Description
The record is an 88-nucleotide sequence from Pseudohongiella spirulinae, which matches "Aggregatibacter sRNA 22" in Rfam. The family's RNA type in Rfam is small RNA. For this family Rfam cites "Small RNA repertoires and their intraspecies variation in Aggregatibacter actinomycetemcomitans" (Oogai et al., DNA Res, 2017). The family has 7 seed sequences and 101 matches in Rfam 15.1.
RNA sequence: GUUCGACAAAACGCACAGCGUUUUGGACGCCCGUCAGGGCGCCCCGCAGGGGUGAGCGAUCCGCCACAGCGGAUUGCGAAUCAAUCUC
Number, nucleotide and partner (000 for none) at each position: 001g000002u000003u000004c000005g000006a000007c025008a024009a023010a022011a021012c020013g019014c018015a000016c000017a000018g014019c013020g012021u011022u010023u009024u008025g007026g000027a000028c041029g040030c039031c038032c037033g000034u000035c000036a000037g032038g031039g030040c029041g028042c052043c051044c050045c049046g000047c000048a000049g045050g044051g043052g042053u000054g000055a000056g077057c076058g075059a074060u073061c072062c071063g070064c069065c000066a000067c000068a000069g064070c063071g062072g061073a060074u059075u058076g057077c056078g000079a000080a000081u000082c000083a000084a000085u000086c000087u000088c000